[Rfam]
RNA sequence: UCGAAACUUUAGGGGUGUCCCGAUAUGCGGACUGAGAUAAUACCCUUUGAACCUGAUGCAGCUAGUACUGCCGAAGGGAAAAGUAAGAGAUACUGC
Numbered sequence: 001u002c003g004a005a006a007c008u009u010u011a012g013g014g015g016u017g018u019c020c021c022g023a024u025a026u027g028c029g030g031a032c033u034g035a036g037a038u039a040a041u042a043c044c045c046u047u048u049g050a051a052c053c054u055g056a057u058g059c060a061g062c063u064a065g066u067a068c069u070g071c072c073g074a075a076g077g078g079a080a081a082a083g084u085a086a087g088a089g090a091u092a093c094u095g096c
Stems, first nucleotide, its partner, number of pairs: 006084005011046004016040001017032004052077003058071004

The record is a 96-nucleotide RNA sequence from Dyadobacter sp. Leaf189, which matches "TPP riboswitch aptamer (THI element)" in Rfam. The organism belongs to Dyadobacter, within Bacteria.